Overview:
Small nucleolar RNA SNORA70: a 138-nucleotide sequence from Mus spicilegus. NCBI's taxonomy places the organism under Eukaryota, Tetrapoda, Theria, Mus, Mus. The family has 43 seed sequences and 5,173 matches in Rfam 15.1. It scores 73 bits against the family's covariance model. The family's consensus secondary structure was predicted with PFOLD. The family's RNA type in Rfam is H/ACA-box small nucleolar RNA. snoRNA U70 seems to be exclusive to mammals and is a member of the H/ACA class of snoRNA which contain H (ANANNA) and ACA box motifs. H/ACA box snoRNAs are involved in the conversion of uridines to pseudouridines (5-ribosyluracil) a constituent of structural RNAs (transfer, ribosomal, small nuclear, and small nucleolar). On this family, see Charette and Gray, IUBMB Life 2000: "Pseudouridine in RNA: what, where, how, and why".
[Rfam]
RNA sequence: UUGCAGCCAAUUAAGCUGACCAAGUAGGUCCCUUUCCCCCAUGGGCUUGACGUGCACUGAUCACAGAUUGCAGCUACCUUGGGACUGUAUGCAGCUUGGUGCCUACGUAGGCUGCACAGAGGGACCUUGGAGACAAUU
Numbered sequence: 001u002u003g004c005a006g007c008c009a010a011u012u013a014a015g016c017u018g019a020c021c022a023a024g025u026a027g028g029u030c031c032c033u034u035u036c037c038c039c040c041a042u043g044g045g046c047u048u049g050a051c052g053u054g055c056a057c058u059g060a061u062c063a064c065a066g067a068u069u070g071c072a073g074c075u076a077c078c079u080u081g082g083g084a085c086u087g088u089a090u091g092c093a094g095c096u097u098g099g100u101g102c103c104u105a106c107g108u109a110g111g112c113u114g115c116a117c118a119g120a121g122g123g124a125c126c127u128u129g130g131a132g133a134c135a136a137u138u
Stems, first nucleotide, its partner, number of pairs: 002056004021049002029045003081126002092114006